[Rfam]
RNA sequence: UUUGCUAUUCUAUAAGCAGGUUAUAUAUAUUCAUGAUAAGGAUGAAUGUUUCUACUAGCUGCCGCAAACAGUUAUCUAUAAUCUUUUAUAGGUGAACU
Numbered sequence: 001u002u003u004g005c006u007a008u009u010c011u012a013u014a015a016g017c018a019g020g021u022u023a024u025a026u027a028u029a030u031u032c033a034u035g036a037u038a039a040g041g042a043u044g045a046a047u048g049u050u051u052c053u054a055c056u057a058g059c060u061g062c063c064g065c066a067a068a069c070a071g072u073u074a075u076c077u078a079u080a081a082u083c084u085u086u087u088a089u090a091g092g093u094g095a096a097c098u
Stems, first nucleotide, its partner, number of pairs: 018084008029047006056074006

Purine riboswitch aptamer: a 98-nucleotide sequence from Eshraghiella crossota. The source organism's lineage runs through Bacteria, Bacillati, Lachnospirales, Eshraghiella and Eshraghiella crossota. It scores 57 bits against the family's covariance model.